[Rfam]
RNA sequence: GCCGCUGCGUGUUCACUGACCUGCCUUGAUGUGAAUUUUCGCACGGAAUUAAGGCACGCGGUGAAUGCCAAGCGUU
Numbered sequence: 001g002c003c004g005c006u007g008c009g010u011g012u013u014c015a016c017u018g019a020c021c022u023g024c025c026u027u028g029a030u031g032u033g034a035a036u037u038u039u040c041g042c043a044c045g046g047a048a049u050u051a052a053g054g055c056a057c058g059c060g061g062u063g064a065a066u067g068c069c070a071a072g073c074g075u076u
Stems, first nucleotide, its partner, number of pairs: 003074004009068008018059001020058001024054007
The record is a 76-nucleotide sequence from Romanomermis culicivorax, which matches "mir-124 microRNA precursor family" in Rfam. It scores 54 bits against the family's covariance model. Pairs were carried over by alignment from the consensus structure, which was predicted with PFOLD. For this family Rfam cites "Computational identification of Drosophila microRNA genes" (Lai et al., Genome Biol, 2003).